[Rfam]
RNA sequence: GCGCGUUGCCCUUCAUCUGGGCGUUUCCUCCCUGCACUAGGCCCCGCUUCGGCGGGGCCUUUUUUUGUUGACUAU
Numbered sequence: 001g002c003g004c005g006u007u008g009c010c011c012u013u014c015a016u017c018u019g020g021g022c023g024u025u026u027c028c029u030c031c032c033u034g035c036a037c038u039a040g041g042c043c044c045c046g047c048u049u050c051g052g053c054g055g056g057g058c059c060u061u062u063u064u065u066u067g068u069u070g071a072c073u074a075u
Base pairs, nucleotide, nucleotide: 008022009021010020011019039060040059041058042057043056044055045054046053047052
The family of this 75-nucleotide RNA from Kaustia mangrovi is "Makes More Granules Regulator RNA (mmgR)".
For this family Rfam cites "Evidence for a second class of S-adenosylmethionine riboswitches and other regulatory RNA motifs in alpha-proteobacteria" (Corbino et al., Genome Biol, 2005).
About the family: SuhB later renamed mmgR (makes more granules regulator) was a putative non-coding RNA found multiple times in the Agrobacterium tumefaciens genome and related alpha-proteobacteria. Other non-coding RNAs uncovered in the same analysis include: speF, ybhL, metA, and serC.Several studies inSinorhizobium meliloti showed that suhB element is indeed a non-coding RNA:firstly it was detected on Northern blot and called Sm8RNA, secondly in an RNAseq study referred to as SmelC689.The mutant phenotype's (strain lacking the small RNA) cytoplasm contains higher content of polyhydroxybutyrate (PBH)storage granules than wild type strain.
By type it is a small RNA.
The pairing is the family consensus, mapped onto this sequence.
NCBI's taxonomy places the organism under Bacteria, Alphaproteobacteria, Hyphomicrobiales, Parvibaculaceae, Kaustia.
Rfam 15.1 lists 1,791 matches to the family in 918 species.
A search with the family's covariance model found it, with a score of 53 bits.
Clan: suhB sRNA clan.